[Rfam]
Rfam assigns this 74-nucleotide RNA from Bos taurus to the family "mir-2300 microRNA precursor family". Its family is annotated with miRNA-mediated post-transcriptional gene silencing and RISC complex in the Gene Ontology.
RNA sequence: UCUUAUUCCUCAGCUAGUUUUGUCUCCCUGUGUGUGAUCAUAAGCAGGGAGGCAAAACUAGCUAAGGAAUAAGA
Number, nucleotide and partner (000 for none) at each position: 001u074002c073003u072004u071005a070006u069007u068008c067009c066010u065011c000012a063013g062014c061015u060016a059017g058018u057019u056020u055021u054022g053023u052024c051025u050026c049027c048028c047029u046030g045031u044032g000033u042034g041035u040036g000037a000038u000039c000040a035041u034042a033043a000044g031045c030046a029047g028048g027049g026050a025051g024052g023053c022054a021055a020056a019057a018058c017059u016060a015061g014062c013063u012064a000065a010066g009067g008068a007069a006070u005071a004072a003073g002074a001
Record summary: The family has 2 seed sequences and 12 matches in Rfam 15.1.